[Rfam]
RNA sequence: GGUGAUCUUCCAUUCACUACGGAUCGUCCGGCACGUACCUGCCGGUGAAGGAGAACGAA
Numbered sequence: 001g002g003u004g005a006u007c008u009u010c011c012a013u014u015c016a017c018u019a020c021g022g023a024u025c026g027u028c029c030g031g032c033a034c035g036u037a038c039c040u041g042c043c044g045g046u047g048a049a050g051g052a053g054a055a056c057g058a059a
Base pairs, nucleotide, nucleotide: 010051011050013049014048015047016046028045029044030043031042032041033040
The record is a 59-nucleotide RNA from Protaetiibacter sp. SSC-01, which matches "msiK RNA" in Rfam. The base pairs follow the family's consensus structure, which is taken from published work. NCBI's taxonomy places the organism under Bacteria, Actinomycetota, Micrococcales, Microbacteriaceae, Protaetiibacter. By type it is a cis-regulatory element.